[Rfam]
S15-Flavobacteria ribosomal protein leader: a 61-nucleotide sequence. For this family Rfam cites "Discovery of 20 novel ribosomal leader candidates in bacteria and archaea" (Eckert and Weinberg, BMC Microbiol, 2020). The base pairs follow the family's consensus structure, which is taken from published work. Clan: Ribosomal Protein S15 Leader clan. Rfam's curators put it in the seed alignment.
RNA sequence: UAUCUUUGCCGCUCGUUAAAAUAACGAAUACAUAAAAAUCAUUAAAAUUAAUAUUGGCAUG
Numbered sequence: 001u002a003u004c005u006u007u008g009c010c011g012c013u014c015g016u017u018a019a020a021a022u023a024a025c026g027a028a029u030a031c032a033u034a035a036a037a038a039u040c041a042u043u044a045a046a047a048u049u050a051a052u053a054u055u056g057g058c059a060u061g
Base pairs, nucleotide, nucleotide: 014026015025016024017023018022